[Rfam]
RtT RNA: a 133-nucleotide RNA from Klebsiella indica. For this family Rfam cites "A novel RNA product of the tyrT operon of Escherichia coli" (Bosl and Kersten, Nucleic Acids Res, 1991). About the family: This family represents a bacterial cis-regulatory element known as RtT RNA. The exact function of RtT is unknown although it is thought that it may be involved in changing the cellular response in relation to amino acid starvation. The base pairs follow the family's consensus structure, which is taken from published work.
RNA sequence: AGUUUGCACUCGUCGGGAAGGGUGAGAACCUUCGACCAGGGUUCGAGUCGAGCGCAAGCGAGACAACGUUGCCACAGGCAACGGCCCGAAGGGUGAGGAGCUUUAGCUCCGAAUAAUCCUUCCCUGCUAUUGA
Numbered sequence: 001a002g003u004u005u006g007c008a009c010u011c012g013u014c015g016g017g018a019a020g021g022g023u024g025a026g027a028a029c030c031u032u033c034g035a036c037c038a039g040g041g042u043u044c045g046a047g048u049c050g051a052g053c054g055c056a057a058g059c060g061a062g063a064c065a066a067c068g069u070u071g072c073c074a075c076a077g078g079c080a081a082c083g084g085c086c087c088g089a090a091g092g093g094u095g096a097g098g099a100g101c102u103u104u105a106g107c108u109c110c111g112a113a114u115a116a117u118c119c120u121u122c123c124c125u126g127c128u129a130u131u132g133a
Stems, first nucleotide, its partner, number of pairs: 015124007023116001033095002036093002042090004049060002067083006